Nucleotides: 215
Base pairs, nucleotide, nucleotide: 001055002054003053004052005051006050010029011028012026016023017022030043031042032041033040058201059200060199062197063078064077065076066075067074081195082194083193084192086189087188088187089186090185098131099130102125103124104123105122106121107120108119109118110211112209113208114206115205116204133177134176135175136174137173138172139171140170141169145168146167148165149164150163152161
Number, partner (000 for none) and nucleotide at each position: 001055g002054u003053c004052a005051g006050g007000a008000a009000c010029c011028c012026c013000a014000c015000g016023g017022a018000u019000a020000c021000a022017u023016c024000c025000g026012g027000g028011g029010g030043c031042u032041u033040g034000u035000g036000a037000a038000a039000a040033c041032a042031a043030g044000u045000c046000c047000a048000g049000a050006c051005c052004u053003g054002a055001c056000c057000a058201g059200a060199c061000u062197c063078a064077g065076u066075u067074a068000u069000g070000u071000a072000u073000g074067u075066a076065a077064c078063u079000a080000c081195g082194u083193u084192a085000c086189a087188g088187g089186c090185g091000a092000a093000a094000u095000u096000a097000g098131g099130u100000a101000c102125g103124g104123c105122a106121g107120g108119g109118u110211g111000c112209u113208u114206u115205c116204c117000a118109g119108c120107c121106c122105u123104g124103c125102c126000c127000u128000c129000u130099a131098c132000g133177g134176c135175a136174c137173a138172g139171c140170a141169u142000u143000a144000a145168a146167c147000a148165g149164g150163u151000g152161u153000a154000c155000a156000g157000g158000g159000u160000g161152a162000a163150g164149c165148c166000a167146g168145u169141g170140u171139g172138u173137u174136g175135u176134g177133c178000g179000a180000u181000a182000a183000a184000c185090c186089g187088c188087u189086u190000g191000a192084u193083a194082a195081c196000a197062g198000u199060g200059u201058c202000g203000a204116g205115g206114a207000a208113a209112a210000c211110u212000u213000u214000a215000c
The record is a 215-nucleotide RNA from Dictyobacter vulcani, which matches "HNH endonuclease-associated RNA and ORF (HEARO) RNA" in Rfam. Rfam classes the family as a non-coding RNA gene. A reference for the family is Weinberg et al. (2009), "Exceptional structured noncoding RNAs revealed by bacterial metagenome analysis", Nature. The family has 139 seed sequences and 952 matches in Rfam 15.1. Lineage of the source: Bacteria > Bacillati > Ktedonobacteria > Dictyobacteraceae > Dictyobacter. A search with the family's covariance model found it, with a score of 144 bits.